[Rfam]
RNA: Guanidine-I riboswitch aptamer
Organism: Nitrosomonas nitrosa
RNA sequence: GUAAUAGCAAACUAGGGUUCCGGCUUUUCUUAUAAGAAUUACAAGAAAAGUGACUGGUCCGAGAGUUUCUGGCUUCGACCAUGACGAAGCUCCACGGAGGGAUAAAAGCCCGGGAGAU
Numbered sequence: 001g002u003a004a005u006a007g008c009a010a011a012c013u014a015g016g017g018u019u020c021c022g023g024c025u026u027u028u029c030u031u032a033u034a035a036g037a038a039u040u041a042c043a044a045g046a047a048a049a050g051u052g053a054c055u056g057g058u059c060c061g062a063g064a065g066u067u068u069c070u071g072g073c074u075u076c077g078a079c080c081a082u083g084a085c086g087a088a089g090c091u092c093c094a095c096g097g098a099g100g101g102a103u104a105a106a107a108g109c110c111c112g113g114g115a116g117a118u
Base pairs, nucleotide, nucleotide: 007070009068010067011066012065015060016059020057021056022054023051024050025049026048027047028046029045030044031043071091072090073089074088075087076086077085093113095116099111100110101109